[Rfam]
RNA sequence: GCUGACUUGAGCUGUUCGUACAAAACUCAAAUCAAUGUUUUGUUCGUUCGGCUCGAGUUAGGG
Dot-bracket structure: .((.(((((((((...((.((((.((..........)).)))).))...))))))))).))..
Numbered sequence: 001g002c003u004g005a006c007u008u009g010a011g012c013u014g015u016u017c018g019u020a021c022a023a024a025a026c027u028c029a030a031a032u033c034a035a036u037g038u039u040u041u042g043u044u045c046g047u048u049c050g051g052c053u054c055g056a057g058u059u060a061g062g063g
Stems, first nucleotide, its partner, number of pairs: 002061002005058009017046002020043004025038002
mir-375 microRNA precursor family: a 63-nucleotide sequence from Stegodyphus mimosarum.
Its family is annotated with miRNA-mediated post-transcriptional gene silencing and RISC complex in the Gene Ontology.
For this family Rfam cites "The developmental miRNA profiles of zebrafish as determined by small RNA cloning" (Chen et al., Genes Dev, 2005).
The base pairs follow the family's consensus structure, which was predicted with RNAalifold.
Taxonomically the source falls in Stegodyphus (Eukaryota, Bilateria, Chelicerata, Eresoidea).
Rfam 15.1 lists 824 matches to the family in 730 species.